[Rfam]
This 117-nucleotide RNA sequence from Limnohabitans sp. JirII-31 belongs to the Rfam family "ALIL pseudoknot". For this family Rfam cites "Apical loop-internal loop RNA pseudoknots: a new type of stimulator of -1 translational frameshifting in bacteria" (Mazauric et al., J Biol Chem, 2008). The match comes from Rfam's covariance-model search (115 bits). The organism belongs to Limnohabitans, within Bacteria.
RNA sequence: CGCGUUUUUCGCCCAGGCGGAGCUCGACCGCCGACUCAAGCCUUGAAGCGUUUUAUCGAUCAGCACCGUAACACCUUCGGGGUCGAGCCAAUUUGCAAGGUUCUGCAAAUUGCCCCG
Numbered sequence: 001c002g003c004g005u006u007u008u009u010c011g012c013c014c015a016g017g018c019g020g021a022g023c024u025c026g027a028c029c030g031c032c033g034a035c036u037c038a039a040g041c042c043u044u045g046a047a048g049c050g051u052u053u054u055a056u057c058g059a060u061c062a063g064c065a066c067c068g069u070a071a072c073a074c075c076u077u078c079g080g081g082g083u084c085g086a087g088c089c090a091a092u093u094u095g096c097a098a099g100g101u102u103c104u105g106c107a108a109a110u111u112g113c114c115c116c117g
Base pairs, nucleotide, nucleotide: 016032017031018030019029020028078117079116080115081114082113089112090111092109093108094107095106096105097104